[Rfam]
The family of this 57-nucleotide RNA sequence from Akebia quinata is "Plastid-ndhJ 3UTR RNA".
Plastid ndhJ is a non-coding RNA (ncRNA) present in plastids. It was identified as a short stem-loop motif in the 3 prime untranslate region (3UTR) of ndhJ gene.
By type it is a cis-regulatory element.
NCBI's taxonomy places the organism under Eukaryota, Euphyllophyta, Magnoliopsida, Ranunculales, Akebia.
On this family, see Richter et al., Plant Commun 2023: "Retrograde signaling in plants: A critical review focusing on the GUN pathway and beyond".
RNA sequence: CCAUUCAUUUUGUACCGCGCACAUCACUUAGAUGGGCUUUAGAAAGUAACGGAGGGG
Numbered sequence: 001c002c003a004u005u006c007a008u009u010u011u012g013u014a015c016c017g018c019g020c021a022c023a024u025c026a027c028u029u030a031g032a033u034g035g036g037c038u039u040u041a042g043a044a045a046g047u048a049a050c051g052g053a054g055g056g057g
Stems, first nucleotide, its partner, number of pairs: 019037002022034004
Dot-bracket structure: ..................((.((((.....)))).))....................